Rfam assigns this 303-nucleotide sequence from Nicotiana tabacum to the family "Plant signal recognition particle RNA". Rfam 15.1 lists 4,988 matches to the family in 266 species. A reference for the family is Regalia et al. (2002), "Prediction of signal recognition particle RNA genes", Nucleic Acids Res. Gene Ontology terms of the family: SRP-dependent cotranslational protein targeting to membrane, signal sequence recognition and signal recognition particle, endoplasmic reticulum targeting.
[Rfam]
RNA sequence: GCCGAGCUCAGUGACGUGGGCUUGUAUCUCAAGUGGGGGCAUUAAUGUGGUGGAAUGCUGGGCUGUCCCAAAAGGUUGGAUUUGGUGGGCUCAAAUCUGGCCUGCCCUGACCAAGCAUAGAGUUGGGUCACGUGGCCCAAGCCAAGGCAUGGGCUGCUUGACUCCUAAAGUGGGGUGGACCGCGUGAGGCUGGUUUCACAGAGCAACGAACAGCUCCCGUUCUGUGCAGUGGAAGGAUAAUGGGCCGGUGCUUUCCAAGUCCAGCAACGCCUAAUGGGCUGCUCCAAUUAAACCACCAUUUUU
Numbered sequence: 001g002c003c004g005a006g007c008u009c010a011g012u013g014a015c016g017u018g019g020g021c022u023u024g025u026a027u028c029u030c031a032a033g034u035g036g037g038g039g040c041a042u043u044a045a046u047g048u049g050g051u052g053g054a055a056u057g058c059u060g061g062g063c064u065g066u067c068c069c070a071a072a073a074g075g076u077u078g079g080a081u082u083u084g085g086u087g088g089g090c091u092c093a094a095a096u097c098u099g100g101c102c103u104g105c106c107c108u109g110a111c112c113a114a115g116c117a118u119a120g121a122g123u124u125g126g127g128u129c130a131c132g133u134g135g136c137c138c139a140a141g142c143c144a145a146g147g148c149a150u151g152g153g154c155u156g157c158u159u160g161a162c163u164c165c166u167a168a169a170g171u172g173g174g175g176u177g178g179a180c181c182g183c184g185u186g187a188g189g190c191u192g193g194u195u196u197c198a199c200a201g202a203g204c205a206a207c208g209a210a211c212a213g214c215u216c217c218c219g220u221u222c223u224g225u226g227c228a229g230u231g232g233a234a235g236g237a238u239a240a241u242g243g244g245c246c247g248g249u250g251c252u253u254u255c256c257a258a259g260u261c262c263a264g265c266a267a268c269g270c271c272u273a274a275u276g277g278g279c280u281g282c283u284c285c286a287a288u289u290a291a292a293c294c295a296c297c298a299u300u301u302u303u
Stems, first nucleotide, its partner, number of pairs: 001040003004023007028037003044302002047299007056290002059286002061283003065279002068277003073272004078262008087253003091250001097248008106236002111232003115227009125164006132157008141148002165170001172217005183208003190201003